The family of this 89-nucleotide RNA from Roseburia inulinivorans is "Group II catalytic intron D1-D4-1". The organism belongs to Roseburia inulinivorans, within Bacteria. The family has 237 seed sequences and 2,508 matches in Rfam 15.1.
[Rfam]
RNA sequence: UAACCAUUGCAUAAAGCAAUGCUGAACGCAUAGAAGUCAGCAGAGGUCAUAGUAGCCAAACGGAACAAGUUCCGUUCGAGGUGAAGGAA
Numbered sequence: 001u002a003a004c005c006a007u008u009g010c011a012u013a014a015a016g017c018a019a020u021g022c023u024g025a026a027c028g029c030a031u032a033g034a035a036g037u038c039a040g041c042a043g044a045g046g047u048c049a050u051a052g053u054a055g056c057c058a059a060a061c062g063g064a065a066c067a068a069g070u071u072c073c074g075u076u077c078g079a080g081g082u083g084a085a086g087g088a089a
Base pairs, nucleotide, nucleotide: 001024002023005021006020007019008018009017010016037044038043047088048087055082056081057080061074